[Rfam]
RNA sequence: ACUGCUCAUGGUCCGUUCGUAACAAUCGUCUGGCAGAGACGGGGGAACCAAUAACGGGCUUUGUAUCUUGAAGUCCUUGGGGUGAAGCCGCAAAGCAUUCAUGAGGAGAAGCUUCUUCAAGGGAAUGCGGAGCGGCCGGGUGACUCCCAUCCGAAUCCGACAGCUUACCUCGCAGGCUUUGGGAGAGGAUCC
Numbered sequence: 001a002c003u004g005c006u007c008a009u010g011g012u013c014c015g016u017u018c019g020u021a022a023c024a025a026u027c028g029u030c031u032g033g034c035a036g037a038g039a040c041g042g043g044g045g046a047a048c049c050a051a052u053a054a055c056g057g058g059c060u061u062u063g064u065a066u067c068u069u070g071a072a073g074u075c076c077u078u079g080g081g082g083u084g085a086a087g088c089c090g091c092a093a094a095g096c097a098u099u100c101a102u103g104a105g106g107a108g109a110a111g112c113u114u115c116u117u118c119a120a121g122g123g124a125a126u127g128c129g130g131a132g133c134g135g136c137c138g139g140g141u142g143a144c145u146c147c148c149a150u151c152c153g154a155a156u157c158c159g160a161c162a163g164c165u166u167a168c169c170u171c172g173c174a175g176g177c178u179u180u181g182g183g184a185g186a187g188g189a190u191c192c
Stems, first nucleotide, its partner, number of pairs: 002038002040172005049079002080158003088135004138152004